[Rfam]
A member of the RNA family "Flavivirus 3' UTR cis-acting replication element (CRE)" from Orthoflavivirus denguei, 93 nucleotides long. It is annotated as a cis-regulatory element. This family represents the Flavivirus 3'-SL cis-acting replication element (CRE). The base pairs follow the family's consensus structure, which is taken from published work. A reference for the family is Zeng et al. (1998), "Identification of specific nucleotide sequences within the conserved 3'-SL in the dengue type 2 virus genome required for replication", J Virol.
RNA sequence: AUGGGAAAGACCAGAGAUCCUGCUGUCUCCUCAGCAUCAUUCCAGGCACAGAACGCCAGAAAAUGGAAUGGUGCUGUUGAAUCAACAGGUUCU
Numbered sequence: 001a002u003g004g005g006a007a008a009g010a011c012c013a014g015a016g017a018u019c020c021u022g023c024u025g026u027c028u029c030c031u032c033a034g035c036a037u038c039a040u041u042c043c044a045g046g047c048a049c050a051g052a053a054c055g056c057c058a059g060a061a062a063a064u065g066g067a068a069u070g071g072u073g074c075u076g077u078u079g080a081a082u083c084a085a086c087a088g089g090u091u092c093u
Stems, first nucleotide, its partner, number of pairs: 002013003015093003019089003032076011045057003